RNA sequence: CCCGCGCCAGGACGGAAAGACCCCAUGGAGCUUUACUCUAGCUUGAUACUGGGACUCGGUAAUGCAUGCACAGGAUAGGUGGGAGGCUAUGAAGCGACAACUCCGGUUGUCGUGGAGCCGCUGUUGGGAUACCACCCUUGUGUUACUGGGUUUCUAACACGCGGCCGUGAUCCGGCCGGUGGACAAUGUCAGGUGGGGAGUUUGACUGGGGCGGUCGCCUCCGAAAGGGUAUCGGAGGCGCUCAAAGGUUCCCUCAGAAUGGUUGGAAACCAUUCGCAGAGUGUAAAGGCAUAAGGGAGCUUGACUGUGACACCGACGGGUGGAGCAGGUACGAAAGUAGGACUUAGUGAUCCGGUGGUAUAAAGUGGGAUUGCCAUCGCUCAACGGAUAAAAGCUACCCUGGGGAUAACAGGCUUAUCACUCCCAAGAGUUCACAUCGACGGAGUGGUUUGGCACCUCGAUGUCGGCUCAUCGCAUCCUGGGGCUGUAGCAGGUCCCAAGGGUUGGGCUGUUCGCCCAUUAAAGCGGUACGCGAGCUGGGUUCAGAACGUCGUGAGACAGUUCGGUCCCUAUCCGGCGUGGGCGCA
Numbered sequence: 001c002c003c004g005c006g007c008c009a010g011g012a013c014g015g016a017a018a019g020a021c022c023c024c025a026u027g028g029a030g031c032u033u034u035a036c037u038c039u040a041g042c043u044u045g046a047u048a049c050u051g052g053g054a055c056u057c058g059g060u061a062a063u064g065c066a067u068g069c070a071c072a073g074g075a076u077a078g079g080u081g082g083g084a085g086g087c088u089a090u091g092a093a094g095c096g097a098c099a100a101c102u103c104c105g106g107u108u109g110u111c112g113u114g115g116a117g118c119c120g121c122u123g124u125u126g127g128g129a130u131a132c133c134a135c136c137c138u139u140g141u142g143u144u145a146c147u148g149g150g151u152u153u154c155u156a157a158c159a160c161g162c163g164g165c166c167g168u169g170a171u172c173c174g175g176c177c178g179g180u181g182g183a184c185a186a187u188g189u190c191a192g193g194u195g196g197g198g199a200g201u202u203u204g205a206c207u208g209g210g211g212c213g214g215u216c217g218c219c220u221c222c223g224a225a226a227g228g229g230u231a232u233c234g235g236a237g238g239c240g241c242u243c244a245a246a247g248g249u250u251c252c253c254u255c256a257g258a259a260u261g262g263u264u265g266g267a268a269a270c271c272a273u274u275c276g277c278a279g280a281g282u283g284u285a286a287a288g289g290c291a292u293a294a295g296g297g298a299g300c301u302u303g304a305c306u307g308u309g310a311c312a313c314c315g316a317c318g319g320g321u322g323g324a325g326c327a328g329g330u331a332c333g334a335a336a337g338u339a340g341g342a343c344u345u346a347g348u349g350a351u352c353c354g355g356u357g358g359u360a361u362a363a364a365g366u367g368g369g370a371u372u373g374c375c376a377u378c379g380c381u382c383a384a385c386g387g388a389u390a391a392a393a394g395c396u397a398c399c400c401u402g403g404g405g406a407u408a409a410c411a412g413g414c415u416u417a418u419c420a421c422u423c424c425c426a427a428g429a430g431u432u433c434a435c436a437u438c439g440a441c442g443g444a445g446u447g448g449u450u451u452g453g454c455a456c457c458u459c460g461a462u463g464u465c466g467g468c469u470c471a472u473c474g475c476a477u478c479c480u481g482g483g484g485c486u487g488u489a490g491c492a493g494g495u496c497c498c499a500a501g502g503g504u505u506g507g508g509c510u511g512u513u514c515g516c517c518c519a520u521u522a523a524a525g526c527g528g529u530a531c532g533c534g535a536g537c538u539g540g541g542u543u544c545a546g547a548a549c550g551u552c553g554u555g556a557g558a559c560a561g562u563u564c565g566g567u568c569c570c571u572a573u574c575c576g577g578c579g580u581g582g583g584c585g586c587a
Stems, first nucleotide, its partner, number of pairs: 001583008010575003014570002022404004027400002029396005035201004042193007051154016068137001078136005085119003094113008158181003162178006204216004217239006240385001242342002248300006254280002257275006281290002305328004311322003330339003353379007362371001413454003417451001418448007428438002465540001466538004470532001471529005478503002481498006505519005546564004550559003
Bacterial large subunit ribosomal RNA: a 587-nucleotide part of an RNA from Herbinix luporum. NCBI's taxonomy places the organism under Bacteria, Bacillota, Lachnospirales, Lachnospiraceae, Herbinix. The match comes from Rfam's covariance-model search (2906 bits).